[Rfam]
RNA sequence: UGCUCAAUGCCACGUUGCCUGUAGCUUGAAUGCUAUGACAGGCAGUGCUACGAUUGAGCAAAGAUCAAACUGUUCUUGGUGAUUCGCUUCCUGAUAGGAAUCUGUGGGUAUUAUACUCAGUAUAUCCAUGGAGCCAUUUCGGCGAUCACAUUC
Numbered sequence: 001u002g003c004u005c006a007a008u009g010c011c012a013c014g015u016u017g018c019c020u021g022u023a024g025c026u027u028g029a030a031u032g033c034u035a036u037g038a039c040a041g042g043c044a045g046u047g048c049u050a051c052g053a054u055u056g057a058g059c060a061a062a063g064a065u066c067a068a069a070c071u072g073u074u075c076u077u078g079g080u081g082a083u084u085c086g087c088u089u090c091c092u093g094a095u096a097g098g099a100a101u102c103u104g105u106g107g108g109u110a111u112u113a114u115a116c117u118c119a120g121u122a123u124a125u126c127c128a129u130g131g132a133g134c135c136a137u138u139u140c141g142g143c144g145a146u147c148a149c150a151u152u153c
Stems, first nucleotide, its partner, number of pairs: 002059007009051001013047006020040003024033002084145005097135002102131003106127005
RNA: Small nucleolar RNA snoR2/U65
Organism: Colocasia esculenta